[Rfam]
RNA sequence: GGGAAACGAGGAAGGGGCUGGGGGCGUGAGCCACCCCAAGCCCUAGGAAGCACAGGCUCA
Number, nucleotide and partner (000 for none) at each position: 001g000002g000003g000004a000005a000006a000007c000008g000009a000010g000011g000012a000013a000014g044015g043016g042017g041018c040019u039020g000021g037022g036023g035024g034025c000026g000027u000028g059029a058030g057031c056032c055033a000034c024035c023036c022037c021038a000039a019040g018041c017042c016043c015044u014045a000046g000047g000048a000049a000050g000051c000052a000053c000054a000055g032056g031057c030058u029059c028060a000
The record is a 60-nucleotide RNA from Sciurus carolinensis, which matches "Ma3 gene ribosomal frameshift signal" in Rfam. Pairs were carried over by alignment from the consensus structure, which is taken from published work. A reference for the family is Wills et al. (2006), "A functional -1 ribosomal frameshift signal in the human paraneoplastic Ma3 gene", J Biol Chem. A search with the family's covariance model found it, with a score of 78 bits.